[Rfam]
RNA sequence: CAUUUGUAAUCGCUGAAUUCCAAUGGGAACGGGGGAACCAAUCUUGAUGUGGUAAUGUACCACUGGGGUGAAUCCUUUGUAAAGGUAGGGUGACUCUUAACAUCCGAAUCCGACAGCUAACCCCGUAAGCGUUUAAAGAGAUAACAA
Numbered sequence: 001c002a003u004u005u006g007u008a009a010u011c012g013c014u015g016a017a018u019u020c021c022a023a024u025g026g027g028a029a030c031g032g033g034g035g036a037a038c039c040a041a042u043c044u045u046g047a048u049g050u051g052g053u054a055a056u057g058u059a060c061c062a063c064u065g066g067g068g069u070g071a072a073u074c075c076u077u078u079g080u081a082a083a084g085g086u087a088g089g090g091u092g093a094c095u096c097u098u099a100a101c102a103u104c105c106g107a108a109u110c111c112g113a114c115a116g117c118u119a120a121c122c123c124c125g126u127a128a129g130c131g132u133u134u135a136a137a138g139a140g141a142u143a144a145c146a147a
Stems, first nucleotide, its partner, number of pairs: 011131004018028003029126006039065002066111003074085004088105004
This 147-nucleotide sequence from Virgibacillus phasianinus belongs to the Rfam family "c-di-AMP riboswitch aptamer (ydaO/yuaA leader)". Pairs were carried over by alignment from the consensus structure. NCBI's taxonomy places the organism under Bacteria, Bacillati, Bacilli, Bacillaceae, Virgibacillus. A search with the family's covariance model found it, with a score of 103 bits. Gene Ontology terms of the family: regulation of gene expression and cyclic-di-AMP binding.